[Rfam]
RNA sequence: CCCUCGGAGUGGAAGACCGAACGAAAGUAGCUAAUUAGCAAAAUCGGACACUAUGAAAGGGGAA
Numbered sequence: 001c002c003c004u005c006g007g008a009g010u011g012g013a014a015g016a017c018c019g020a021a022c023g024a025a026a027g028u029a030g031c032u033a034a035u036u037a038g039c040a041a042a043a044u045c046g047g048a049c050a051c052u053a054u055g056a057a058a059g060g061g062g063a064a
Stems, first nucleotide, its partner, number of pairs: 001062004009051003022046003030039003
RNA: RAGATH-18 RNA
Organism: Clostridium ljungdahlii